[Rfam]
RNA sequence: CAUCAAGUUUCCAAGGGCUGUGGCCAUUAAUGGCCAUGGGAUCUCCAACUGCAUGCUACAGCAACCCGGAGAGACUUUGACAGCUCAGGUCAACAUAGUGCCUACGGCUGCCACUCGCCUUUCCUAUAAAG
Numbered sequence: 001c002a003u004c005a006a007g008u009u010u011c012c013a014a015g016g017g018c019u020g021u022g023g024c025c026a027u028u029a030a031u032g033g034c035c036a037u038g039g040g041a042u043c044u045c046c047a048a049c050u051g052c053a054u055g056c057u058a059c060a061g062c063a064a065c066c067c068g069g070a071g072a073g074a075c076u077u078u079g080a081c082a083g084c085u086c087a088g089g090u091c092a093a094c095a096u097a098g099u100g101c102c103u104a105c106g107g108c109u110g111c112c113a114c115u116c117g118c119c120u121u122u123c124c125u126a127u128a129a130a131g
Stems, first nucleotide, its partner, number of pairs: 011039002016035006068124006083111002087103003

A member of the RNA family "Small nucleolar RNA SNORA44" from Jaculus jaculus, 131 nucleotides long. Pairs were carried over by alignment from the consensus structure, which was predicted with PFOLD. By type it is an H/ACA-box small nucleolar RNA. It scores 133 bits against the family's covariance model. The family is grouped with related families in Rfam's "SNORA44 clan".